[Rfam]
This 70-nucleotide RNA sequence from Castor canadensis belongs to the Rfam family "Small nucleolar RNA SNORD56".
Its family is annotated with nucleolus and RNA processing in the Gene Ontology.
A search with the family's covariance model found it, with a score of 52 bits.
Lineage of the source: Eukaryota > Euteleostomi > Sarcopterygii > Tetrapoda > Castor.
Rfam 15.1 lists 796 matches to the family in 432 species.
RNA sequence: AUACAAUGAUGGUAAUAUUUUCAGUCAAUAGAGUUCAUUUAGUGAAUUUUCAUACAUUGGGUCUGACUGA
Numbered sequence: 001a002u003a004c005a006a007u008g009a010u011g012g013u014a015a016u017a018u019u020u021u022c023a024g025u026c027a028a029u030a031g032a033g034u035u036c037a038u039u040u041a042g043u044g045a046a047u048u049u050u051c052a053u054a055c056a057u058u059g060g061g062u063c064u065g066a067c068u069g070a
Base pairs, nucleotide, nucleotide: 002069003068008026009025010024